[Rfam]
RNA sequence: CGUUCCGAGGAGCGUUGCGACGGAUUCUCAUCCGCCAGGCUCGGGACGCUUCAAUCGGACCACCCGCGCGUGCAGCUCGCACGACCCCCGCUGGCCGGCUCCAUCGAACGGCGCUCACGUCUU
Numbered sequence: 001c002g003u004u005c006c007g008a009g010g011a012g013c014g015u016u017g018c019g020a021c022g023g024a025u026u027c028u029c030a031u032c033c034g035c036c037a038g039g040c041u042c043g044g045g046a047c048g049c050u051u052c053a054a055u056c057g058g059a060c061c062a063c064c065c066g067c068g069c070g071u072g073c074a075g076c077u078c079g080c081a082c083g084a085c086c087c088c089c090g091c092u093g094g095c096c097g098g099c100u101c102c103a104u105c106g107a108a109c110g111g112c113g114c115u116c117a118c119g120u121c122u123u
Stems, first nucleotide, its partner, number of pairs: 002047007021034005